Rfam assigns this 95-nucleotide sequence from Nyssa sinensis to the family "Small nucleolar RNA Z266". Lineage of the source: Eukaryota > Streptophytina > Euphyllophyta > asterids > Nyssa. For this family Rfam cites "The high diversity of snoRNAs in plants: identification and comparative study of 120 snoRNA genes from Oryza sativa" (Chen et al., Nucleic Acids Res, 2003). The family's RNA type in Rfam is C/D-box small nucleolar RNA. Rfam 15.1 lists 719 matches to the family in 213 species. Gene Ontology terms of the family: RNA processing and nucleolus.
RNA sequence: GAUGGUAAAGAAUGAUGAAACAAUUAGAUGUGUGAAAGGGAAAUUCCCUUAUGAGCUCAACUAUUGAGGCUUAUUGAUAUUCUGACUUUGCCACU
Numbered sequence: 001g002a003u004g005g006u007a008a009a010g011a012a013u014g015a016u017g018a019a020a021c022a023a024u025u026a027g028a029u030g031u032g033u034g035a036a037a038g039g040g041a042a043a044u045u046c047c048c049u050u051a052u053g054a055g056c057u058c059a060a061c062u063a064u065u066g067a068g069g070c071u072u073a074u075u076g077a078u079a080u081u082c083u084g085a086c087u088u089u090g091c092c093a094c095u
Base pairs, nucleotide, nucleotide: 001095003093004092005091006090007089008088009087010086